[Rfam]
RNA sequence: CACUCGCGGGUGAGUCCUAUACGGUCAGCUCCUUGUGAUCCCCCCAGGGCUUGAUCGCAGCAAGGGUAGCAGGUUGUAGCGACGCGAUAUAGGUUGCUCACCCCAAC
Dot-bracket structure: .......((((((((.(((((((((........................................................)).)).)))))...))))))))....